[Rfam]
RNA sequence: UAAAGACACUCUGGAAAGUCGGGGCUGGCCCCCGCGCCGAAGGUGUAAGCAUGACCGACAGGGUUCCGGUCAUGCGAGUCUCUCAGGCUUCCGACAGAGGGGCACGA
Numbered sequence: 001u002a003a004a005g006a007c008a009c010u011c012u013g014g015a016a017a018g019u020c021g022g023g024g025c026u027g028g029c030c031c032c033c034g035c036g037c038c039g040a041a042g043g044u045g046u047a048a049g050c051a052u053g054a055c056c057g058a059c060a061g062g063g064u065u066c067c068g069g070u071c072a073u074g075c076g077a078g079u080c081u082c083u084c085a086g087g088c089u090u091c092c093g094a095c096a097g098a099g100g101g102g103c104a105c106g107a
Stems, first nucleotide, its partner, number of pairs: 007101001009099005020034004036088003039084002043082001045080001049075009
Rfam assigns this 107-nucleotide RNA from Nitratireductor pacificus to the family "Glycine riboswitch aptamer". The family has 44 seed sequences and 9,425 matches in Rfam 15.1. The source organism's lineage runs through Bacteria, Pseudomonadati, Hyphomicrobiales, Phyllobacteriaceae and Nitratireductor pacificus. Its family is annotated with glycine biosynthetic process in the Gene Ontology.